Small nucleolar RNA SNORA74: a 201-nucleotide RNA sequence from Poecilia reticulata. Rfam describes the family as follows. U19 belongs to the H/ACA class of snoRNAs. snoRNAs bind a number of proteins (including dyskerin, Gar1p and Nop10p in the case of the H/ACA class) to form snoRNP complexes. This class are thought to guide the sites of modification of uridines to pseudouridines by forming direct base pairing interactions with substrate RNAs. Targets may include ribosomal and spliceosomal RNAs but the exact functions of many snoRNAs, including U19, are not confirmed. Co-precipitation of U19 snoRNA with RNase MRP RNA suggests that U19 may be involved in pre-rRNA processing. Taxonomically the source falls in Poecilia (Eukaryota, Eumetazoa, Vertebrata, Acanthomorphata). It is annotated as an H/ACA-box small nucleolar RNA. The family is grouped with related families in Rfam's "SNORA74 clan". Pairs were carried over by alignment from the consensus structure, which was predicted with PFOLD.
RNA sequence: CCCAGCUCUAAGUCAGCUGGCCAGGCCCUGAUUGCCUGGUUCAGUGUUACAGGGCUGGAAGAGAAAGCCUCUGUUCUCUGCCUCAGCAGCGCCCCCUCUGUUCUGGAGGCUGAUGCUGCUGAGCUGCAGCAGAGCGUGGCCCAAAGAGAGUGGCCAGUCCUGGUGGGACUGCAGGGUGGGCCUAGUGGAGGGCUUCACACU
Numbered sequence: 001c002c003c004a005g006c007u008c009u010a011a012g013u014c015a016g017c018u019g020g021c022c023a024g025g026c027c028c029u030g031a032u033u034g035c036c037u038g039g040u041u042c043a044g045u046g047u048u049a050c051a052g053g054g055c056u057g058g059a060a061g062a063g064a065a066a067g068c069c070u071c072u073g074u075u076c077u078c079u080g081c082c083u084c085a086g087c088a089g090c091g092c093c094c095c096c097u098c099u100g101u102u103c104u105g106g107a108g109g110c111u112g113a114u115g116c117u118g119c120u121g122a123g124c125u126g127c128a129g130c131a132g133a134g135c136g137u138g139g140c141c142c143a144a145a146g147a148g149a150g151u152g153g154c155c156a157g158u159c160c161u162g163g164u165g166g167g168a169c170u171g172c173a174g175g176g177u178g179g180g181c182c183u184a185g186u187g188g189a190g191g192g193c194u195u196c197a198c199a200c201u
Base pairs, nucleotide, nucleotide: 002058003057004056005055006054007053008052009051012050013049016045017044018043019042020041022038023037024036025035026034069134070133071132072131073130074129080127081126084123085120086119087118088117089116090115093112094109096108097107098106099105136196138194139193140192141191142190152182153181154180157177158176159175160174161173162172